[Rfam]
RNA sequence: CUGUAAAGACAUGCAGAGCUGUAGAGCCUGUUCUUACAUAAAGUAAGGCAUGUCGAAGAA
Numbered sequence: 001c002u003g004u005a006a007a008g009a010c011a012u013g014c015a016g017a018g019c020u021g022u023a024g025a026g027c028c029u030g031u032u033c034u035u036a037c038a039u040a041a042a043g044u045a046a047g048g049c050a051u052g053u054c055g056a057a058g059a060a
Stems, first nucleotide, its partner, number of pairs: 008054006014030003018027003033047005
Dot-bracket structure: .......(((((((((.(((....))))))..(((((.....))))).))))))......
Shown here is a 60-nucleotide sequence, a member of the family "S4-Fusobacteriales ribosomal protein leader".
For this family Rfam cites "Discovery of 20 novel ribosomal leader candidates in bacteria and archaea" (Eckert and Weinberg, BMC Microbiol, 2020).
Rfam classes the family as a cis-regulatory leader.